[Rfam]
RNA: Small nucleolar RNA Z155
Organism: Zea mays
RNA sequence: UGUUGAUGGGAUGAUAAGCCUUGACAGAAACUUCAGUGUUGACCCAAAUAUCAGACUACAAUUAUCUGAUCGACU
Numbered sequence: 001u002g003u004u005g006a007u008g009g010g011a012u013g014a015u016a017a018g019c020c021u022u023g024a025c026a027g028a029a030a031c032u033u034c035a036g037u038g039u040u041g042a043c044c045c046a047a048a049u050a051u052c053a054g055a056c057u058a059c060a061a062u063u064a065u066c067u068g069a070u071c072g073a074c075u
Stems, first nucleotide, its partner, number of pairs: 002074005